The family of this 81-nucleotide RNA sequence from Candidatus Moduliflexus flocculans is "c-di-GMP-I riboswitch aptamer". Rfam's curators write: GEMM was predicted in a large-scale screen for bacterial structured RNA regulatory elements. The family's consensus secondary structure is taken from published work. Its family is annotated with cyclic-di-GMP binding in the Gene Ontology. The organism belongs to Candidatus Moduliflexus, within Bacteria. A search with the family's covariance model found it, with a score of 56 bits.
[Rfam]
Nucleotides: 081
Base pairs, nucleotide, nucleotide: 012037017032018031019030020029021028022027040075041074042073043072045071046070047069048066049065050064051063052062053061054060
Number, partner (000 for none) and nucleotide at each position: 001000u002000u003000c004000a005000g006000a007000a008000a009000a010000u011000g012037u013000g014000a015000a016000a017032c018031c019030c020029g021028u022027c023000g024000u025000g026000a027022g028021g029020c030019g031018g032017g033000g034000a035000c036000g037012g038000a039000a040075a041074g042073c043072u044000a045071c046070g047069g048066g049065u050064c051063u052062u053061u054060g055000u056000u057000g058000a059000a060054u061053a062052a063051a064050g065049a066048u067000c068000g069047c070046c071045g072043g073042g074041u075040u076000g077000c078000c079000u080000g081000a